[Rfam]
RNA: Pseudomonas sRNA P10
RNA sequence: ACUUGGCGACUUGCAUGCCUGCCCGAUUCCGGGCCACGGCAUCACGCCCAUUGUGACGGCUUCAAGCGAUGU
Numbered sequence: 001a002c003u004u005g006g007c008g009a010c011u012u013g014c015a016u017g018c019c020u021g022c023c024c025g026a027u028u029c030c031g032g033g034c035c036a037c038g039g040c041a042u043c044a045c046g047c048c049c050a051u052u053g054u055g056a057c058g059g060c061u062u063c064a065a066g067c068g069a070u071g072u
Base pairs, nucleotide, nucleotide: 007071008070017040018039019038020036021035023033024032051069052068053067054066055063